[Rfam]
RNA: SAM riboswitch aptamer (S box leader)
RNA sequence: ACCUCAUCCAGAGGGGCAGAGGGAACGGCCCUGUGAAGCCCCGGCAACCACCGCAUUCGUCUCGAAGAAGAGGCCGCGCGCGGCAGGUGCUAAUUCCGUCCUCGUCGGCAGGUUGCCGAGGGGAAAGAUGAGAG
Numbered sequence: 001a002c003c004u005c006a007u008c009c010a011g012a013g014g015g016g017c018a019g020a021g022g023g024a025a026c027g028g029c030c031c032u033g034u035g036a037a038g039c040c041c042c043g044g045c046a047a048c049c050a051c052c053g054c055a056u057u058c059g060u061c062u063c064g065a066a067g068a069a070g071a072g073g074c075c076g077c078g079c080g081c082g083g084c085a086g087g088u089g090c091u092a093a094u095u096c097c098g099u100c101c102u103c104g105u106c107g108g109c110a111g112g113u114u115g116c117c118g119a120g121g122g123g124a125a126a127g128a129u130g131a132g133a134g
Stems, first nucleotide, its partner, number of pairs: 003132006013042005021031003025099004043091004048087002051083004095126001100123004105118001